[Rfam]
RNA: Plastid-ccsA-ndhD-1 3UTR RNA
RNA sequence: AAUCAUCAAGAACCUUUUGAAUCAAGUAGUACAAUGAUUCAAAAGGUUCUUACAAC
Numbered sequence: 001a002a003u004c005a006u007c008a009a010g011a012a013c014c015u016u017u018u019g020a021a022u023c024a025a026g027u028a029g030u031a032c033a034a035u036g037a038u039u040c041a042a043a044a045g046g047u048u049c050u051u052a053c054a055a056c
Stems, first nucleotide, its partner, number of pairs: 008051016